[Rfam]
RNA sequence: AGCAUCAGAUGAUGAAUUUGAAAUUAUCUUAGGACACCUUCUGACACAGCGUUAUUCUGUGUAUGAGAAAGAAAUUUCAUUUUCUGAUGAUGCU
Numbered sequence: 001a002g003c004a005u006c007a008g009a010u011g012a013u014g015a016a017u018u019u020g021a022a023a024u025u026a027u028c029u030u031a032g033g034a035c036a037c038c039u040u041c042u043g044a045c046a047c048a049g050c051g052u053u054a055u056u057c058u059g060u061g062u063a064u065g066a067g068a069a070a071g072a073a074a075u076u077u078c079a080u081u082u083u084c085u086g087a088u089g090a091u092g093c094u
Stems, first nucleotide, its partner, number of pairs: 001094007042048002
Record summary
The record is a 94-nucleotide RNA sequence from Coptis chinensis, which matches "Small nucleolar RNA snoR31/Z110/Z27" in Rfam. Taxonomically the source falls in Coptis (Eukaryota, Streptophyta, Magnoliopsida, Ranunculaceae). The family's consensus secondary structure was predicted with PFOLD. Rfam describes the family as follows. This family contains several related snoRNAs including R31, Z27 and Z110. A search with the family's covariance model found it, with a score of 71 bits.